[Rfam]
RNA: SAM riboswitch aptamer (S box leader)
Organism: Janibacter cremeus
RNA sequence: CACCCAUCCAGAGCGGCCGAGAGAUCUGGCUCGACGACGCCGCAGCAACCACCCUCCGGGGGCAGGUGCUCACGCCAGGAUCGAUGGAGG
Numbered sequence: 001c002a003c004c005c006a007u008c009c010a011g012a013g014c015g016g017c018c019g020a021g022a023g024a025u026c027u028g029g030c031u032c033g034a035c036g037a038c039g040c041c042g043c044a045g046c047a048a049c050c051a052c053c054c055u056c057c058g059g060g061g062g063c064a065g066g067u068g069c070u071c072a073c074g075c076c077a078g079g080a081u082c083g084a085u086g087g088a089g090g
Stems, first nucleotide, its partner, number of pairs: 001090001004087005013043005021032003026078004044070004049066002052061003074082001